[Rfam]
RNA sequence: AUGCAAAUGAUGACAAUAUUAUUGAUGAUAUAAGAAGCUCGAGCUCAAUUAUUAAUUUAUUAUUGUAGAUGGGCGAUGCUUUUUCCAUAAUACUUCCAUGACUCUGAUGCAU
Numbered sequence: 001a002u003g004c005a006a007a008u009g010a011u012g013a014c015a016a017u018a019u020u021a022u023u024g025a026u027g028a029u030a031u032a033a034g035a036a037g038c039u040c041g042a043g044c045u046c047a048a049u050u051a052u053u054a055a056u057u058u059a060u061u062a063u064u065g066u067a068g069a070u071g072g073g074c075g076a077u078g079c080u081u082u083u084u085c086c087a088u089a090a091u092a093c094u095u096c097c098a099u100g101a102c103u104c105u106g107a108u109g110c111a112u
Stems, first nucleotide, its partner, number of pairs: 001112005037074004
Rfam assigns this 112-nucleotide RNA sequence from Anisodus acutangulus to the family "Small nucleolar RNA R72".
Rfam describes the family as follows. snoR72 is a C/D box small nucleolar RNA, which acts as a methylation guide for 25S ribosomal RNA in Arabidopsis.
The literature on the family includes a 2003 paper in Nucleic Acids Res by Chen et al., "The high diversity of snoRNAs in plants: identification and comparative study of 120 snoRNA genes from Oryza sativa".
It is annotated as a C/D-box small nucleolar RNA.
The family's consensus secondary structure was predicted with PFOLD.